RNA sequence: UUGGUUUAAAUCAUUGUGGAUAUAUAUUUUGAAAAUUGAACUCACACAAAGUAAUGAGACAUAUGCUGAUUUGAUCCAA
Numbered sequence: 001u002u003g004g005u006u007u008a009a010a011u012c013a014u015u016g017u018g019g020a021u022a023u024a025u026a027u028u029u030u031g032a033a034a035a036u037u038g039a040a041c042u043c044a045c046a047c048a049a050a051g052u053a054a055u056g057a058g059a060c061a062u063a064u065g066c067u068g069a070u071u072u073g074a075u076c077c078a079a
Stems, first nucleotide, its partner, number of pairs: 001079004006074008015065004023056002025053007
Shown here is a 79-nucleotide RNA sequence from Medicago truncatula, a member of the family "MIR5269 microRNA precursor family". Rfam links the family to the GO terms miRNA-mediated post-transcriptional gene silencing and RISC complex. Rfam 15.1 lists 389 matches to the family in 6 species. The match comes from Rfam's covariance-model search (66 bits). The base pairs follow the family's consensus structure, which was predicted with RNAalifold.